[Rfam]
RNA sequence: GAGUCUAACAUGUGCGCGAGUCGUCGGGUUUCGUUUGAGAGACCCGCAGGCGAAGCGAAAGCGAAGGGGAGUCUCGUCCUCGACUCGGACUCGCGCUUUUCGAAAGCGCGAGUUCGAGCUCCCCGCGAGACGAUGCCGUCCGUCGCUCGCGAGCCGGAAAUCGAAAAGGCGCGAGCGGCGAAAAAAAGACAAGAACCAAGCAGACGAGAGCGACGAAUAGCCGGAAAGAGAAAAUUCGCCGGGCUCGCGAGAGCUCGGCGACCGGCCGGCCGCAGUCUCGGGGCGUCUCUGGCGUCUCGCGCGGAUUUUUCGUCCGCGCGCGACCGAGGCGCACCGCGAGCGCACACGUUGGGACCCGAGAGAUGAUGAACUAUACCUGGUCAGGACGAAGUCAGGGGAAACCCUGAUGGAGGUCCGUCGAGAUUCUGACGUGCAAAUCGAUCUCUUGAACUGGGCAUAGGGGCGAAAGACUAAUCGAAUCAUCUGUUAGCUGGUUU
Numbered sequence: 001g002a003g004u005c006u007a008a009c010a011u012g013u014g015c016g017c018g019a020g021u022c023g024u025c026g027g028g029u030u031u032c033g034u035u036u037g038a039g040a041g042a043c044c045c046g047c048a049g050g051c052g053a054a055g056c057g058a059a060a061g062c063g064a065a066g067g068g069g070a071g072u073c074u075c076g077u078c079c080u081c082g083a084c085u086c087g088g089a090c091u092c093g094c095g096c097u098u099u100u101c102g103a104a105a106g107c108g109c110g111a112g113u114u115c116g117a118g119c120u121c122c123c124c125g126c127g128a129g130a131c132g133a134u135g136c137c138g139u140c141c142g143u144c145g146c147u148c149g150c151g152a153g154c155c156g157g158a159a160a161u162c163g164a165a166a167a168g169g170c171g172c173g174a175g176c177g178g179c180g181a182a183a184a185a186a187a188g189a190c191a192a193g194a195a196c197c198a199a200g201c202a203g204a205c206g207a208g209a210g211c212g213a214c215g216a217a218u219a220g221c222c223g224g225a226a227a228g229a230g231a232a233a234a235u236u237c238g239c240c241g242g243g244c245u246c247g248c249g250a251g252a253g254c255u256c257g258g259c260g261a262c263c264g265g266c267c268g269g270c271c272g273c274a275g276u277c278u279c280g281g282g283g284c285g286u287c288u289c290u291g292g293c294g295u296c297u298c299g300c301g302c303g304g305a306u307u308u309u310u311c312g313u314c315c316g317c318g319c320g321c322g323a324c325c326g327a328g329g330c331g332c333a334c335c336g337c338g339a340g341c342g343c344a345c346a347c348g349u350u351g352g353g354a355c356c357c358g359a360g361a362g363a364u365g366a367u368g369a370a371c372u373a374u375a376c377c378u379g380g381u382c383a384g385g386a387c388g389a390a391g392u393c394a395g396g397g398g399a400a401a402c403c404c405u406g407a408u409g410g411a412g413g414u415c416c417g418u419c420g421a422g423a424u425u426c427u428g429a430c431g432u433g434c435a436a437a438u439c440g441a442u443c444u445c446u447u448g449a450a451c452u453g454g455g456c457a458u459a460g461g462g463g464c465g466a467a468a469g470a471c472u473a474a475u476c477g478a479a480u481c482a483u484c485u486g487u488u489a490g491c492u493g494g495u496u497u
Base pairs, nucleotide, nucleotide: 005352006351007350008349009348011346012345013344014343015342016341017340020051021050022049025046026045027044028043029042030041031040032039055062056061127279128278129277130276131275135270136269137268138267281335282334283332284331285330287328288327289326293322294321355494356493358491362484363483364482365481366480367479371460372459373458374457376455377454378453379452380451381450382448384416385415386414387413391408392407393406394405395404396403397402420445421444422443423442425441426440428439429438462472463471